[Rfam]
RNA sequence: UCACAAGUUCAAGGCCAUAGCAGAAGUCCUCAAGGCUUGGCCCUGUCAGAUUCCAAUGAAUCUGUGAAUUCUGCU
Dot-bracket structure: ............[[[[..((((((((...........)]]]]....(((((((....)))))))....)))))))
RNA: Mammalian CPEB3 ribozyme